Notes: A member of the RNA family "ZMP/ZTP riboswitch aptamer (pfl RNA motif)" from Cellulomonas triticagri, 92 nucleotides long. The organism belongs to Cellulomonas, within Bacteria. It scores 59 bits against the family's covariance model.
RNA sequence: GGGUCGGGCCGUGACUGGCGAGAGGUGGAACUGACCACCGGGGAGCGGCCCGCAGCAGUCCCGCCGACGCACCGAUCGCCUGGGUGCAGGGU
Numbered sequence: 001g002g003g004u005c006g007g008g009c010c011g012u013g014a015c016u017g018g019c020g021a022g023a024g025g026u027g028g029a030a031c032u033g034a035c036c037a038c039c040g041g042g043g044a045g046c047g048g049c050c051c052g053c054a055g056c057a058g059u060c061c062c063g064c065c066g067a068c069g070c071a072c073c074g075a076u077c078g079c080c081u082g083g084g085u086g087c088a089g090g091g092u
Stems, first nucleotide, its partner, number of pairs: 005052008015042002017080005025038004069087005
Dot-bracket structure: ....((((((((..(([[[[[...((((......))))..))..))))))))................(((((..]]]]]..))))).....